A member of the RNA family "Y RNA" from Prolemur simus, 103 nucleotides long.

RNA sequence: GGUCUGGUCUGAGUGCAGUGGUGUUUACAACUGAUCAAUGACAACCAGUUAUAGAUUCCUUUGUACCUUCUCCACUCCCAGUGCUUCACUUGACUAACCUAAA
Numbered sequence: 001g002g003u004c005u006g007g008u009c010u011g012a013g014u015g016c017a018g019u020g021g022u023g024u025u026u027a028c029a030a031c032u033g034a035u036c037a038a039u040g041a042c043a044a045c046c047a048g049u050u051a052u053a054g055a056u057u058c059c060u061u062u063g064u065a066c067c068u069u070c071u072c073c074a075c076u077c078c079c080a081g082u083g084c085u086u087c088a089c090u091u092g093a094c095u096a097a098c099c100u101a102a103a
Stems, first nucleotide, its partner, number of pairs: 001099003005096005011091002015087001017082001019080003023077001034064002037061002
Rfam describes the family as follows. Y RNAs are components of the Ro ribonucleoprotein particle (Ro RNP), in association with Ro60 and La proteins. NCBI's taxonomy places the organism under Eukaryota, Vertebrata, Teleostomi, Mammalia, Prolemur.